[Rfam]
RNA sequence: UAUCUUUGCACCCAUGUUGAGAAAAUCUCAAUCUACAUAAAAAUUAUUAAACAAUAUUGGCAUG
Numbered sequence: 001u002a003u004c005u006u007u008g009c010a011c012c013c014a015u016g017u018u019g020a021g022a023a024a025a026u027c028u029c030a031a032u033c034u035a036c037a038u039a040a041a042a043a044u045u046a047u048u049a050a051a052c053a054a055u056a057u058u059g060g061c062a063u064g
Stems, first nucleotide, its partner, number of pairs: 016032006